[Rfam]
RNA: mraW RNA
Organism: Saccharopolyspora erythraea
RNA sequence: UCGCGACCGGGUGUCGUGAGGCCUCGGUCCGCUCGGCUAUCGCACGCCUGGUGCACCUUCCCCGGCAUCAGGACGCGACGGGCGGGCGGGGACCUGACGGAACCCGGUCUCUGGGGG
Numbered sequence: 001u002c003g004c005g006a007c008c009g010g011g012u013g014u015c016g017u018g019a020g021g022c023c024u025c026g027g028u029c030c031g032c033u034c035g036g037c038u039a040u041c042g043c044a045c046g047c048c049u050g051g052u053g054c055a056c057c058u059u060c061c062c063c064g065g066c067a068u069c070a071g072g073a074c075g076c077g078a079c080g081g082g083c084g085g086g087c088g089g090g091g092a093c094c095u096g097a098c099g100g101a102a103c104c105c106g107g108u109c110u111c112u113g114g115g116g117g
Stems, first nucleotide, its partner, number of pairs: 010104003014100003020094002023091003027087008040077001041075002047072008